The family of this 115-nucleotide RNA sequence from Populus deltoides is "mir-399 microRNA precursor family".
Rfam describes the family as follows. mir-399 was identified in both Arabidopsis thaliana and Oryza sativa computationally and was later experimentally verified. mir-399 is thought to target mRNAs coding for a phosphatase transporter. The mature sequence is excised from the 3' arm of the hairpin.
The family's consensus secondary structure was predicted with PFOLD.
Rfam 15.1 lists 2,396 matches to the family in 221 species.
Gene Ontology terms of the family: miRNA-mediated post-transcriptional gene silencing and RISC complex.
RNA sequence: GGAUGCAUUACUGGGCAAUUCUUCUGUUGGCAGCUGGUGACUCAUACUGCACUAGCUGAGAUUAAGCAGCAAGAGUUUGCUCACUGCCAAAGAAGAUUUGCCCCGCAAUUCAUUC
Numbered sequence: 001g002g003a004u005g006c007a008u009u010a011c012u013g014g015g016c017a018a019u020u021c022u023u024c025u026g027u028u029g030g031c032a033g034c035u036g037g038u039g040a041c042u043c044a045u046a047c048u049g050c051a052c053u054a055g056c057u058g059a060g061a062u063u064a065a066g067c068a069g070c071a072a073g074a075g076u077u078u079g080c081u082c083a084c085u086g087c088c089a090a091a092g093a094a095g096a097u098u099u100g101c102c103c104c105g106c107a108a109u110u111c112a113u114u115c
Stems, first nucleotide, its partner, number of pairs: 005111001007109003011105001013103006021095004028089006035083002
A search with the family's covariance model found it, with a score of 64 bits. Taxonomically the source falls in Populus (Eukaryota, Spermatophyta, Mesangiospermae, Pentapetalae).